The family of this 338-nucleotide sequence from Thauera sinica is "Betaproteobacteria transfer-messenger RNA". NCBI's taxonomy places the organism under Bacteria, Pseudomonadati, Betaproteobacteria, Zoogloeaceae, Thauera. On this family, see Felden et al., RNA 1997: "Probing the structure of the Escherichia coli 10Sa RNA (tmRNA)". Its family is annotated with RNA catabolic process in the Gene Ontology. Rfam describes the family as follows. Bacterial tmRNA, also known as 10Sa RNA or SsrA, is named for its dual tRNA and mRNA-like properties. Its role is to liberate the mRNA from a stalled ribosome. To accomplish this part of the tmRNA is used as a reading frame that ends in a translation stop signal. It scores 259 bits against the family's covariance model. By type it is a non-coding RNA gene.
RNA sequence: GGACGCGAGGGCUUGAAAGCCGGCGGGUACGCCCCCACAAUGCAGGCAUGGUUGUAAUUCCGGCAAACCGGAGACGUUCUGGACGGGGGUUCGAUUCCCCCCAGCUCCACCAGAAGAAGGCACGGCGACAACGCUGCGUUUUCUUCUGAGGGGGCUGACCUGGUCUCGACAGGGCGGGCAAGGGUGAGCAGGCAACCCGAGAGGCGACGGACGUAAUCCGCGCAAAACCACAAACGCCAACGAUGAGCGUUUCGCACUGGCCGCCUAAGGCCGAUGCCGAGGCCGCUUGAGCCUUGUUACCAAAGAAAAGCCGGCGGGGACUUCGGUCCCCGUCGUCA
Numbered sequence: 001g002g003a004c005g006c007g008a009g010g011g012c013u014u015g016a017a018a019g020c021c022g023g024c025g026g027g028u029a030c031g032c033c034c035c036c037a038c039a040a041u042g043c044a045g046g047c048a049u050g051g052u053u054g055u056a057a058u059u060c061c062g063g064c065a066a067a068c069c070g071g072a073g074a075c076g077u078u079c080u081g082g083a084c085g086g087g088g089g090u091u092c093g094a095u096u097c098c099c100c101c102c103a104g105c106u107c108c109a110c111c112a113g114a115a116g117a118a119g120g121c122a123c124g125g126c127g128a129c130a131a132c133g134c135u136g137c138g139u140u141u142u143c144u145u146c147u148g149a150g151g152g153g154g155c156u157g158a159c160c161u162g163g164u165c166u167c168g169a170c171a172g173g174g175c176g177g178g179c180a181a182g183g184g185u186g187a188g189c190a191g192g193c194a195a196c197c198c199g200a201g202a203g204g205c206g207a208c209g210g211a212c213g214u215a216a217u218c219c220g221c222g223c224a225a226a227a228c229c230a231c232a233a234a235c236g237c238c239a240a241c242g243a244u245g246a247g248c249g250u251u252u253c254g255c256a257c258u259g260g261c262c263g264c265c266u267a268a269g270g271c272c273g274a275u276g277c278c279g280a281g282g283c284c285g286c287u288u289g290a291g292c293c294u295u296g297u298u299a300c301c302a303a304a305g306a307a308a309a310g311c312c313g314g315c316g317g318g319g320a321c322u323u324c325g326g327u328c329c330c331c332g333u334c335g336u337c338a
Base pairs, nucleotide, nucleotide: 050197051196052195053194054193060192061191063189064188066185068183069182075176076175077174078173079172080171081170085101086100087099088098089097102157103156104155105154106153107152108151198213199212280294281293282292283291285311286310287309288308314333315332316331317330318329319328320327321326